[Rfam]
RNA sequence: UGUUCUCAGAGAUGUAAGUUGCUUUGGAGAAAAGCAUCUGCUAAAUGAAUAAAU
Number, nucleotide and partner (000 for none) at each position: 001u000002g000003u000004u000005c000006u000007c000008a000009g000010a000011g000012a000013u043014g041015u040016a039017a000018g000019u000020u036021g035022c034023u033024u032025u031026g000027g000028a000029g000030a000031a025032a024033a023034g022035c021036a020037u000038c000039u016040g015041c014042u000043a013044a000045a000046u000047g000048a000049a000050u000051a000052a000053a000054u000
RNA: UnaL2 LINE 3' element